Record summary:
This 160-nucleotide RNA sequence from Metabacillus lacus belongs to the Rfam family "Manganese Mn2+ riboswitch aptamer (yybP-ykoY)". This RNA was originally discovered in E. coli during a large scale screen and was named SraF. The family was later found to exist upstream of related families of protein genes in many bacteria, including the the yybP and ykoK genes in B. subtilis. The specific functions of these proteins are unknown, but this structured RNA element may be involved in their genetic regulation as a riboswitch. Lineage of the source: Bacteria > Bacilli > Caryophanales > Bacillaceae > Metabacillus. The base pairs follow the family's consensus structure.

[Rfam]
Nucleotides: 160
Stems, first nucleotide, its partner, number of pairs: 025041003043083010060073005088160003
Number, partner (000 for none) and nucleotide at each position: 001000c002000u003000u004000u005000c006000u007000u008000u009000c010000a011000a012000a013000g014000g015000g016000g017000a018000g019000u020000a021000g022000c023000g024000u025041u026040c027039g028000a029000g030000u031000u032000a033000c034000a035000u036000a037000c038000u039027c040026g041025a042000a043083a044082a045081c046080a047079a048078a049077g050076u051075c052074g053000u054000c055000a056000u057000u058000u059000c060073g061072u062071g063070a064069a065000u066000u067000c068000a069064u070063u071062c072061a073060c074052c075051g076050g077049c078048u079047u080046u081045g082044u083043u084000g085000g086000c087000g088160g089159u090158u091000c092000a093000c094000a095000c096000u097000g098000u099000c100000u101000a102000g103000c104000a105000a106000g107000a108000c109000c110000u111000u112000u113000g114000c115000c116000u117000g118000u119000u120000g121000c122000g123000g124000c125000a126000a127000a128000g129000g130000u131000c132000u133000u134000u135000u136000u137000a138000u139000a140000u141000u142000g143000u144000c145000u146000g147000a148000u149000c150000u151000u152000c153000u154000c155000c156000g157000u158090a159089a160088c